[Rfam]
RNA sequence: ACUUGGCCUGGACACGCACCGUGCCCGGGUCAUCAGACAGGCACAGCUCUCGGGGAAGAACCGGGGCAUGUUGGGGCGUU
Numbered sequence: 001a002c003u004u005g006g007c008c009u010g011g012a013c014a015c016g017c018a019c020c021g022u023g024c025c026c027g028g029g030u031c032a033u034c035a036g037a038c039a040g041g042c043a044c045a046g047c048u049c050u051c052g053g054g055g056a057a058g059a060a061c062c063g064g065g066g067c068a069u070g071u072u073g074g075g076g077c078g079u080u
Stems, first nucleotide, its partner, number of pairs: 004032008014022003046067004051063002
A member of the RNA family "nrdJ RNA" from Streptomyces sp. AA1529, 80 nucleotides long. Rfam classes the family as a small RNA.